[Rfam]
The family of this 172-nucleotide RNA sequence from Eshraghiella crossota is "Clostridiales-1 RNA". Rfam 15.1 lists 1,172 matches to the family in 137 species. It is annotated as a small RNA.
RNA sequence: UGAUGUAAAGUGUCAAUAAGUCUUAAUUGCGAUUGUGCCUGCACAAAUGAGCAAUUCAGACUUAUUGACACGCCGAACACCGAAAACGGAAUAAAAUGCUUUGAAUAUGGCAUUUUAUGGGAGUUUGAGGUGGGCGGUAAUUGCGCAGCAAUGCAGCAAUUCAUAUACAUCA
Numbered sequence: 001u002g003a004u005g006u007a008a009a010g011u012g013u014c015a016a017u018a019a020g021u022c023u024u025a026a027u028u029g030c031g032a033u034u035g036u037g038c039c040u041g042c043a044c045a046a047a048u049g050a051g052c053a054a055u056u057c058a059g060a061c062u063u064a065u066u067g068a069c070a071c072g073c074c075g076a077a078c079a080c081c082g083a084a085a086a087c088g089g090a091a092u093a094a095a096a097u098g099c100u101u102u103g104a105a106u107a108u109g110g111c112a113u114u115u116u117a118u119g120g121g122a123g124u125u126u127g128a129g130g131u132g133g134g135c136g137g138u139a140a141u142u143g144c145g146c147a148g149c150a151a152u153g154c155a156g157c158a159a160u161u162c163a164u165a166u167a168c169a170u171c172a
Base pairs, nucleotide, nucleotide: 001172002171003170004169005168006167007166011070012069013068014067018063019062020061021060022059023058025056026055027054028053029052030051033046034045035044036043037042074136075135078132079131080130081129084126085125086124087123091118092117093116094115095114096113097112098111099110100109139161140160141159142158143157144156